[Rfam]
RNA sequence: AAAGUUUGACAGACAAUCGCUGGCGGCGCGAGCCGCGAGAGGAAAGUCCGGGCUCCAUAGGGCAGGAUGCUGGAUAACGUCCAGUCGGCGCGAGCCGAAGGAUAGUGCCACAGAAAUGGACCGCCGAUGACUCAUCCCCGAACUGGUUUUGGGGCCCCCGCAAAGUAAUCGGAAUAAGCUUCGAAGCUUACCGUCACUUUGUGGGGAUUGAGAACAGGCAAGGGUGGAACCGUGGUGUAAGAGACCACGAGGGGCAUGGGUGACCAUGCGCCUGGUAAACCCCAUCUGGAGCAAGACCGAAGAGGAACGCAGCAGUCUUCGAGACUGCAGCCCUAGCCCGGGGCGCGUUCGGGUUGGUCGCUUGAGCGUGCCGGCAACGGUACGCCUAGAAAGAUGAUUGUCGCUUCCAUCCGUGGGAGGACCGCCCGGUCCGCGAUACCACCGGAAGUACAGAACCCGGCUUACGGCAAACUUUCCGG
Numbered sequence: 001a002a003a004g005u006u007u008g009a010c011a012g013a014c015a016a017u018c019g020c021u022g023g024c025g026g027c028g029c030g031a032g033c034c035g036c037g038a039g040a041g042g043a044a045a046g047u048c049c050g051g052g053c054u055c056c057a058u059a060g061g062g063c064a065g066g067a068u069g070c071u072g073g074a075u076a077a078c079g080u081c082c083a084g085u086c087g088g089c090g091c092g093a094g095c096c097g098a099a100g101g102a103u104a105g106u107g108c109c110a111c112a113g114a115a116a117u118g119g120a121c122c123g124c125c126g127a128u129g130a131c132u133c134a135u136c137c138c139c140g141a142a143c144u145g146g147u148u149u150u151g152g153g154g155c156c157c158c159c160g161c162a163a164a165g166u167a168a169u170c171g172g173a174a175u176a177a178g179c180u181u182c183g184a185a186g187c188u189u190a191c192c193g194u195c196a197c198u199u200u201g202u203g204g205g206g207a208u209u210g211a212g213a214a215c216a217g218g219c220a221a222g223g224g225u226g227g228a229a230c231c232g233u234g235g236u237g238u239a240a241g242a243g244a245c246c247a248c249g250a251g252g253g254g255c256a257u258g259g260g261u262g263a264c265c266a267u268g269c270g271c272c273u274g275g276u277a278a279a280c281c282c283c284a285u286c287u288g289g290a291g292c293a294a295g296a297c298c299g300a301a302g303a304g305g306a307a308c309g310c311a312g313c314a315g316u317c318u319u320c321g322a323g324a325c326u327g328c329a330g331c332c333c334u335a336g337c338c339c340g341g342g343g344c345g346c347g348u349u350c351g352g353g354u355u356g357g358u359c360g361c362u363u364g365a366g367c368g369u370g371c372c373g374g375c376a377a378c379g380g381u382a383c384g385c386c387u388a389g390a391a392a393g394a395u396g397a398u399u400g401u402c403g404c405u406u407c408c409a410u411c412c413g414u415g416g417g418a419g420g421a422c423c424g425c426c427c428g429g430u431c432c433g434c435g436a437u438a439c440c441a442c443c444g445g446a447a448g449u450a451c452a453g454a455a456c457c458c459g460g461c462u463u464a465c466g467g468c469a470a471a472c473u474u475u476c477c478g479g
Base pairs, nucleotide, nucleotide: 001475002474003473004472005471006470007469008468010466012402013401014400015399016398017397018396020039021038023036024035025034026033027032044463045462046461048460049459050458051457052456053291054290055289056288060339061338062337063336065287066286067285068284069283070084071083072082073081074080085099086097087096088095089094100282101281105280106279107276108275109274121223122222123219124218125217128214231249232248233247234246235245236244251271254269255268256267257266258265259264295359296358297357298356305350306349307348308347309346310345330344331343332342333341334340366385367384368383369382370381371380372379373378
Rfam assigns this 479-nucleotide RNA sequence from Cohnella sp. AR92 to the family "Bacterial RNase P class A".
The family's RNA type in Rfam is ribozyme.
Ribonuclease P (RNase P) is a ubiquitous endoribonuclease, found in archaea, bacteria and eukarya as well as chloroplasts and mitochondria. Its best characterised activity is the generation of mature 5'-ends of tRNAs by cleaving the 5'-leader elements of precursor-tRNAs. Cellular RNase Ps are ribonucleoproteins. RNA from bacterial RNase Ps retains its catalytic activity in the absence of the protein subunit, i.e. it is a ribozyme. Isolated eukaryotic and archaeal RNase P RNA has not been shown to retain its catalytic function, but is still essential for the catalytic activity of the holoenzyme. Although the archaeal and eukaryotic holoenzyme s have a much greater protein content than the bacterial ones, the RNA cores from all the three lineages are homologous -- helices corresponding to P1, P2, P3, P4, and P10/11 are common to all cellular RNase P RNAs. Yet, there is considerable sequence variation, particularly among the eukaryotic RNAs. Identified in Yersinia as Ysr151/RnpB.
A search with the family's covariance model found it, with a score of 276 bits.
NCBI's taxonomy places the organism under Bacteria, Bacillati, Caryophanales, Paenibacillaceae, Cohnella.